Annotation
A member of the RNA family "Ruegeria cis8 sRNA" from Roseibium sp. TrichSKD4, 128 nucleotides long.
RNA sequence: ACCGCAAGAACCUUGGCGAUAUACGGGAUAAGCGGCAGGUUCAGGAUCAGAAGGAUCACAUUGCCGAUAUACAUGGAGAUGAUCACCGCCCAGAAGAUCUGAGGAUCAUCGACCAUGAGGCGAGGGCC
Dot-bracket structure: ..(((.((....)).))).......((.(...((.(.(((..(.((((...(((.((...(((.........((.......)).......)))..)))))...)))).)..)))....).))..).))
The family has 2 seed sequences and 138 matches in Rfam 15.1.